RNA sequence: AUGCACCUUGCACUCUACGCCUUUCCUUUCAAUGGGUUGGUAUGAUUUAAUAAGGAUGCAAGAGAAUAGUACGGGAAGUUCGAAGACUUGCGGAUUUGCUUCCACGGCUCCGCGAGUUCAUAACUGUCACCACAAUU
Numbered sequence: 001a002u003g004c005a006c007c008u009u010g011c012a013c014u015c016u017a018c019g020c021c022u023u024u025c026c027u028u029u030c031a032a033u034g035g036g037u038u039g040g041u042a043u044g045a046u047u048u049a050a051u052a053a054g055g056a057u058g059c060a061a062g063a064g065a066a067u068a069g070u071a072c073g074g075g076a077a078g079u080u081c082g083a084a085g086a087c088u089u090g091c092g093g094a095u096u097u098g099c100u101u102c103c104a105c106g107g108c109u110c111c112g113c114g115a116g117u118u119c120a121u122a123a124c125u126g127u128c129a130c131c132a133c134a135a136u137u
Base pairs, nucleotide, nucleotide: 003059004058005057006055007054008053009052016044017043020040021039025036026035027034073131074130075128076127077125078124079123080122085118086117087116088115089114090113091112092111093110098108099107100106

Caenorhabditis snoRNA ceN41: a 137-nucleotide RNA from Caenorhabditis elegans. The literature on the family includes a 2007 paper in BMC Mol Biol by Jia et al., "Systematic identification of non-coding RNA 2,2,7-trimethylguanosine cap structures in Caenorhabditis elegans". The sequence is in the family's curated seed alignment. Gene Ontology terms of the family: nucleolus and RNA processing. The family has 3 seed sequences and 13 matches in Rfam 15.1.